[Rfam]
RNA sequence: UAUGUCCAGGGGCAAACUUCACCGAAAGGGAGGGACGCAAAGCCACGGGCCUACAGUGGGUAACCGCUAAGGUAGCCGGGCUGCGACA
Numbered sequence: 001u002a003u004g005u006c007c008a009g010g011g012g013c014a015a016a017c018u019u020c021a022c023c024g025a026a027a028g029g030g031a032g033g034g035a036c037g038c039a040a041a042g043c044c045a046c047g048g049g050c051c052u053a054c055a056g057u058g059g060g061u062a063a064c065c066g067c068u069a070a071g072g073u074a075g076c077c078g079g080g081c082u083g084c085g086a087c088a
Stems, first nucleotide, its partner, number of pairs: 012038002017033004022029002041082004046078003049073003056067004